[Rfam]
RNA sequence: CCGAAAUCUGCGCCGGAACCAAGCGGCAUCCAACAUUUGUCAAAGCCAUGCUCACCGCCACGGACCGUAAACCCCUGAACGGAGGGUAGCUAGUGGCAUCAGCUACUGCUGUAAACGCUGUAAACCCGUAGUUCAGGAGAUUGGGGUCGGUGGCGGCGAGCAUGGCUGUGACAAAUGUUGGAUGCCGCUUGGUUCCGGCGCAGAUUUCGG
Numbered sequence: 001c002c003g004a005a006a007u008c009u010g011c012g013c014c015g016g017a018a019c020c021a022a023g024c025g026g027c028a029u030c031c032a033a034c035a036u037u038u039g040u041c042a043a044a045g046c047c048a049u050g051c052u053c054a055c056c057g058c059c060a061c062g063g064a065c066c067g068u069a070a071a072c073c074c075c076u077g078a079a080c081g082g083a084g085g086g087u088a089g090c091u092a093g094u095g096g097c098a099u100c101a102g103c104u105a106c107u108g109c110u111g112u113a114a115a116c117g118c119u120g121u122a123a124a125c126c127c128g129u130a131g132u133u134c135a136g137g138a139g140a141u142u143g144g145g146g147u148c149g150g151u152g153g154c155g156g157c158g159a160g161c162a163u164g165g166c167u168g169u170g171a172c173a174a175a176u177g178u179u180g181g182a183u184g185c186c187g188c189u190u191g192g193u194u195c196c197g198g199c200g201c202a203g204a205u206u207u208c209g210g
Stems, first nucleotide, its partner, number of pairs: 001210033035176007044167010055156007063148004068143003072139001074137007084127003091120005096112003
Rfam assigns this 210-nucleotide RNA from Ectocarpus siliculosus to the family "MIR8622 microRNA precursor family".
Rfam links the family to the GO terms RISC complex and miRNA-mediated post-transcriptional gene silencing.